[Rfam]
RNA sequence: CCUGCACCCAAACCCAAAGGCCCCCCCUCCCCCCGUGGGGGGGUCUUGUCUGGCGUGCGAACAGGAAACUGAACCCUGUCGCCUUUCUGUCGCUGCUGUGCGGCGGAAUGUGAAGCAGGGGGCGACACGC
Numbered sequence: 001c002c003u004g005c006a007c008c009c010a011a012a013c014c015c016a017a018a019g020g021c022c023c024c025c026c027c028u029c030c031c032c033c034c035g036u037g038g039g040g041g042g043g044u045c046u047u048g049u050c051u052g053g054c055g056u057g058c059g060a061a062c063a064g065g066a067a068a069c070u071g072a073a074c075c076c077u078g079u080c081g082c083c084u085u086u087c088u089g090u091c092g093c094u095g096c097u098g099u100g101c102g103g104c105g106g107a108a109u110g111u112g113a114a115g116c117a118g119g120g121g122g123c124g125a126c127a128c129g130c
Stems, first nucleotide, its partner, number of pairs: 003059005009053001019045009071123001074122004083110001085108009
Shown here is a 130-nucleotide RNA sequence from Liparis tanakae, a member of the family "Small nucleolar RNA SNORA68".
By type it is an H/ACA-box small nucleolar RNA.
The base pairs follow the family's consensus structure, which was predicted with PFOLD.
Rfam links the family to the GO terms RNA processing and nucleolus.
Taxonomically the source falls in Liparis (Eukaryota, Actinopteri, Neopterygii, Percomorphaceae).
About the family: U68 is a member of the H/ACA class of small nucleolar RNAs (snoRNAs) which act as guides in the the modification of uridines to pseudouridines.